[Rfam]
RNA sequence: GAUGACAGUGAUGAACACAUCAAAUUGAAGCUCAACAGACCCAAAUGCACGGUUUAGUCUCUUCGAGAGACUACUUUGCGUGUCGACAAUCUCGCAACUGAGUCAUC
Numbered sequence: 001g002a003u004g005a006c007a008g009u010g011a012u013g014a015a016c017a018c019a020u021c022a023a024a025u026u027g028a029a030g031c032u033c034a035a036c037a038g039a040c041c042c043a044a045a046u047g048c049a050c051g052g053u054u055u056a057g058u059c060u061c062u063u064c065g066a067g068a069g070a071c072u073a074c075u076u077u078g079c080g081u082g083u084c085g086a087c088a089a090u091c092u093c094g095c096a097a098c099u100g101a102g103u104c105a106u107c
Stems, first nucleotide, its partner, number of pairs: 001107006
Dot-bracket structure: ((((((...............................................................................................))))))
Annotation: This 107-nucleotide RNA sequence from Abrus precatorius belongs to the Rfam family "Small nucleolar RNA Z107/R87". For this family Rfam cites "Identification of 66 box C/D snoRNAs in Arabidopsis thaliana: extensive gene duplications generated multiple isoforms predicting new ribosomal RNA 2'-O-methylation sites" (Barneche et al., J Mol Biol, 2001). The family's consensus secondary structure was predicted with RNAfold. Rfam classes the family as a C/D-box small nucleolar RNA. Taxonomically the source falls in Abrus (Eukaryota, Embryophyta, Mesangiospermae, Pentapetalae). The family has 9 seed sequences and 783 matches in Rfam 15.1.